[Rfam]
Rfam assigns this 124-nucleotide RNA sequence from Finegoldia magna to the family "Ribosomal protein L10 leader".
Rfam classes the family as a cis-regulatory leader.
Pairs were carried over by alignment from the consensus structure, which was predicted with CMfinder.
RNA sequence: AGUAAUUAAUUUGGGCUACCGAAGACAGUAGGGACUAUUAAGUUUAAUCAUCCUACAGAGGAGCAUAAGAUAUGAGUUUAUCAGUCUUUCUGUCUUUGGAUGGAAAGACUUUUUUAGUGUAGCC
Numbered sequence: 001a002g003u004a005a006u007u008a009a010u011u012u013g014g015g016c017u018a019c020c021g022a023a024g025a026c027a028g029u030a031g032g033g034a035c036u037a038u039u040a041a042g043u044u045u046a047a048u049c050a051u052c053c054u055a056c057a058g059a060g061g062a063g064c065a066u067a068a069g070a071u072a073u074g075a076g077u078u079u080a081u082c083a084g085u086c087u088u089u090c091u092g093u094c095u096u097u098g099g100a101u102g103g104a105a106a107g108a109c110u111u112u113u114u115u116a117g118u119g120u121a122g123c124c
Stems, first nucleotide, its partner, number of pairs: 028056006034043003084109010